A member of the RNA family "U4 spliceosomal RNA" from Callorhinus ursinus, 134 nucleotides long.

[Rfam]
RNA sequence: AGCUUUGCGCAGUGGCAGUAUCGUAGCCAAUGAGGUUUAUCCAAGGCGCAAUUACUGCUAAUAGAAAGUCAGCUAUGUCUUCUGUUCUUGAAAGUAGUGACUUUAUGAAAAGGUCAUGGAGUGCCCUGCAGUGC
Numbered sequence: 001a002g003c004u005u006u007g008c009g010c011a012g013u014g015g016c017a018g019u020a021u022c023g024u025a026g027c028c029a030a031u032g033a034g035g036u037u038u039a040u041c042c043a044a045g046g047c048g049c050a051a052u053u054a055c056u057g058c059u060a061a062u063a064g065a066a067a068g069u070c071a072g073c074u075a076u077g078u079c080u081u082c083u084g085u086u087c088u089u090g091a092a093a094g095u096a097g098u099g100a101c102u103u104u105a106u107g108a109a110a111a112g113g114u115c116a117u118g119g120a121g122u123g124c125c126c127u128g129c130a131g132u133g134c
Stems, first nucleotide, its partner, number of pairs: 020052002023049002026047003034042002081113003085109003089105001091104005123134002126131001
Rfam describes the family as follows. U4 small nuclear RNA (U4 snRNA) is a component of the major U2-dependent spliceosome.